Description
The record is a 178-nucleotide RNA from Pediococcus stilesii, which matches "Lysine riboswitch aptamer" in Rfam. NCBI's taxonomy places the organism under Bacteria, Bacillati, Bacillota, Lactobacillaceae, Pediococcus. The base pairs follow the family's consensus structure, which is taken from published work. Gene Ontology term of the family: lysine biosynthetic process.
RNA sequence: AUCGAAAGAAGAGGUUGCCUCAAUUAUGAUUAGGUUCGGUUAGAUGACUAAGCAUCAAUGAUCCGAAUUAAAAGGAAGCGAGGCCGAAAUGAUUACAUGCUUAUUCAUGUAUGAUUUGGGCCCUGGUUGAAUAAACUAGGGACUGUCGCAAUGGAAAUUGCGGAGCGCUAUCUACGAU
Numbered sequence: 001a002u003c004g005a006a007a008g009a010a011g012a013g014g015u016u017g018c019c020u021c022a023a024u025u026a027u028g029a030u031u032a033g034g035u036u037c038g039g040u041u042a043g044a045u046g047a048c049u050a051a052g053c054a055u056c057a058a059u060g061a062u063c064c065g066a067a068u069u070a071a072a073a074g075g076a077a078g079c080g081a082g083g084c085c086g087a088a089a090u091g092a093u094u095a096c097a098u099g100c101u102u103a104u105u106c107a108u109g110u111a112u113g114a115u116u117u118g119g120g121c122c123c124u125g126g127u128u129g130a131a132u133a134a135a136c137u138a139g140g141g142a143c144u145g146u147c148g149c150a151a152u153g154g155a156a157a158u159u160g161c162g163g164a165g166c167g168c169u170a171u172c173u174a175c176g177a178u
Stems, first nucleotide, its partner, number of pairs: 006173001008171001010169002017084005024077002033069007088117002094111006118144002121141008146163007